Overview:
Shown here is a 54-nucleotide sequence from Aquila chrysaetos, a member of the family "Glutamine riboswitch aptamer (glnA leader)". Gene Ontology term of the family: glutamine binding. Pairs were carried over by alignment from the consensus structure, which is taken from published work. The literature on the family includes a 2011 paper in RNA Biol by Ames and Breaker, "Bacterial aptamers that selectively bind glutamine".
RNA sequence: AUCUUUCAUUUAUAUUUAAACUGAAGUAAGAUAUUUGGUUUGAAGGAAUGCGUG
Numbered sequence: 001a002u003c004u005u006u007c008a009u010u011u012a013u014a015u016u017u018a019a020a021c022u023g024a025a026g027u028a029a030g031a032u033a034u035u036u037g038g039u040u041u042g043a044a045g046g047a048a049u050g051c052g053u054g
Stems, first nucleotide, its partner, number of pairs: 003050001005048003009020004023051001029041003